[Rfam]
RNA: TPP riboswitch aptamer (THI element)
RNA sequence: GUAAUGUGCUAGGGGAGCCUUUGUGCUGAGAUUUGAGAAAUCAUAAACCCUUUAAACCUGAUCUAGUUAAUUCUAGCGUAGGGAAUGCAACCUUAUAAAAAU
Numbered sequence: 001g002u003a004a005u006g007u008g009c010u011a012g013g014g015g016a017g018c019c020u021u022u023g024u025g026c027u028g029a030g031a032u033u034u035g036a037g038a039a040a041u042c043a044u045a046a047a048c049c050c051u052u053u054a055a056a057c058c059u060g061a062u063c064u065a066g067u068u069a070a071u072u073c074u075a076g077c078g079u080a081g082g083g084a085a086u087g088c089a090a091c092c093u094u095a096u097a098a099a100a101a102u
Stems, first nucleotide, its partner, number of pairs: 007089003011051004017026002034043003057082004063076004